[Rfam]
RNA sequence: UGUGUGUGAUGGGUUGGCAGUGUAUUGUUAGCUGGUUGAGUAUAUGAGUAGCAUCAGCUAACAUGCAACUGCUGUCUUAUUACACGCA
Numbered sequence: 001u002g003u004g005u006g007u008g009a010u011g012g013g014u015u016g017g018c019a020g021u022g023u024a025u026u027g028u029u030a031g032c033u034g035g036u037u038g039a040g041u042a043u044a045u046g047a048g049u050a051g052c053a054u055c056a057g058c059u060a061a062c063a064u065g066c067a068a069c070u071g072c073u074g075u076c077u078u079a080u081u082a083c084a085c086g087c088a
Base pairs, nucleotide, nucleotide: 001088002087003086004085005084006083007082008081009080010079011078012077013076015074016073017072018071019070020069021068022066023065024064027062028061029060030059031058032057033056034055035054036053041050042049043048
RNA: mir-449 microRNA precursor family
Organism: Catagonus wagneri